[Rfam]
RNA sequence: CUUUUACUUUAACAUGGAGGUGCUUUCUGUGAUUUUACAAAAGUAAGUGCUUCCAUGUUUUAGUAGAGG
Number, nucleotide and partner (000 for none) at each position: 001c069002u068003u067004u000005u065006a064007c063008u062009u000010u000011a059012a058013c057014a056015u055016g054017g053018a052019g051020g050021u049022g048023c047024u046025u045026u000027c043028u042029g000030u000031g000032a000033u000034u000035u000036u000037a000038c000039a000040a000041a000042a028043g027044u000045a025046a024047g023048u022049g021050c020051u019052u018053c017054c016055a015056u014057g013058u012059u011060u000061u000062a008063g007064u006065a005066g000067a003068g002069g001